[Rfam]
Record summary:
This 122-nucleotide RNA from Pontibacillus chungwhensis belongs to the Rfam family "SAM riboswitch aptamer (S box leader)".
RNA sequence: UUCUUAUCCAGAGAGGCGGAGGGACUGGCCCUUUGAUGCCCGGCAACCAUCGAGUCGAUGAAUACAAUUGACAAGAACGGUGCCAAUUCCUGCAGGAACAAUAUGUUCUUGGAAGAUGAGAG
Numbered sequence: 001u002u003c004u005u006a007u008c009c010a011g012a013g014a015g016g017c018g019g020a021g022g023g024a025c026u027g028g029c030c031c032u033u034u035g036a037u038g039c040c041c042g043g044c045a046a047c048c049a050u051c052g053a054g055u056c057g058a059u060g061a062a063u064a065c066a067a068u069u070g071a072c073a074a075g076a077a078c079g080g081u082g083c084c085a086a087u088u089c090c091u092g093c094a095g096g097a098a099c100a101a102u103a104u105g106u107u108c109u110u111g112g113a114a115g116a117u118g119a120g121a122g
Base pairs, nucleotide, nucleotide: 001122002121003120004119005118006117007116008115013041015040016039017038021031022030023029025092027090028089042084043083044082045081047080048079051075088114093111094110095109096108097107098106